[Rfam]
Source information: The record is a 90-nucleotide sequence from Bacillus licheniformis, which matches "pan motif" in Rfam.

RNA sequence: UGGGCAGUAUCCUCUGGGAACUGCACCUGGAAAGCAUGCAACUUAUAAAAAAACAGUCUGCCUUGAUCCAAAAAGGACUGGGACAGAGGG
Dot-bracket structure: .(((((((.((......))))))).))..............................((((((.(.(((.....)))).))).)))....
Numbered sequence: 001u002g003g004g005c006a007g008u009a010u011c012c013u014c015u016g017g018g019a020a021c022u023g024c025a026c027c028u029g030g031a032a033a034g035c036a037u038g039c040a041a042c043u044u045a046u047a048a049a050a051a052a053a054c055a056g057u058c059u060g061c062c063u064u065g066a067u068c069c070a071a072a073a074a075g076g077a078c079u080g081g082g083a084c085a086g087a088g089g090g
Stems, first nucleotide, its partner, number of pairs: 002027002004024005010019002058086003061082003065078001067077003